The family of this 144-nucleotide RNA from Schizosaccharomyces cryophilus is "small nucleolar RNA snR93". By type it is an H/ACA-box small nucleolar RNA. Pairs were carried over by alignment from the consensus structure, which was predicted with RNAalifold. The organism belongs to Schizosaccharomyces cryophilus, within Eukaryota. The literature on the family includes a 2005 paper in J Biol Chem by Li et al., "Identification and functional analysis of 20 Box H/ACA small nucleolar RNAs (snoRNAs) from Schizosaccharomyces pombe".
RNA sequence: AUGCACAUUUACUAGAGGUGAUCGUUGCAAUUAGUACGAUGGCCUUGUAUUAGUGUGCUAGAUUAAUUUGUCUGUCUUAUACAUAUUGGCGACUCAUCAUCGGUAAAAUAACCCGGGGGUUGUCAAGAAUGGACCGACACAAUG
Numbered sequence: 001a002u003g004c005a006c007a008u009u010u011a012c013u014a015g016a017g018g019u020g021a022u023c024g025u026u027g028c029a030a031u032u033a034g035u036a037c038g039a040u041g042g043c044c045u046u047g048u049a050u051u052a053g054u055g056u057g058c059u060a061g062a063u064u065a066a067u068u069u070g071u072c073u074g075u076c077u078u079a080u081a082c083a084u085a086u087u088g089g090c091g092a093c094u095c096a097u098c099a100u101c102g103g104u105a106a107a108a109u110a111a112c113c114c115g116g117g118g119g120u121u122g123u124c125a126a127g128a129a130u131g132g133a134c135c136g137a138c139a140c141a142a143u144g
Base pairs, nucleotide, nucleotide: 003058004057005056006055011048012047014045015044018043019042022039023038024037071137072136074134075133076132088124089123090122091121092120093119100116101115102114103113